[Rfam]
RNA sequence: CUGGGCGGCGGGGCCAGCCAGCCCAGCCUGGUGCCAGCCGGCCUCACCCGUGCCCGAGAUAAACCGCCCGGCGGGCUCCCUGCUGGGGGCCGUCCUGUGCAGUAACAGGUGUGAGCAUCCAUGCAGUGUUUUGGUGGUCAUGUAUGAUACUGCAUACAUAU
Numbered sequence: 001c002u003g004g005g006c007g008g009c010g011g012g013g014c015c016a017g018c019c020a021g022c023c024c025a026g027c028c029u030g031g032u033g034c035c036a037g038c039c040g041g042c043c044u045c046a047c048c049c050g051u052g053c054c055c056g057a058g059a060u061a062a063a064c065c066g067c068c069c070g071g072c073g074g075g076c077u078c079c080c081u082g083c084u085g086g087g088g089g090c091c092g093u094c095c096u097g098u099g100c101a102g103u104a105a106c107a108g109g110u111g112u113g114a115g116c117a118u119c120c121a122u123g124c125a126g127u128g129u130u131u132u133g134g135u136g137g138u139c140a141u142g143u144a145u146g147a148u149a150c151u152g153c154a155u156a157c158a159u160a161u
Stems, first nucleotide, its partner, number of pairs: 001037003005034002007028003011024001013022002067088003070084005096156009106146002112140003116136004123130001
Rfam assigns this 161-nucleotide RNA from Baryphthengus martii to the family "Small Cajal body specific RNA 16".
A reference for the family is Darzacq et al. (2002), "Cajal body-specific small nuclear RNAs: a novel class of 2'-O-methylation and pseudouridylation guide RNAs", EMBO J.
The organism belongs to Baryphthengus, within Eukaryota.
Rfam 15.1 lists 790 matches to the family in 514 species.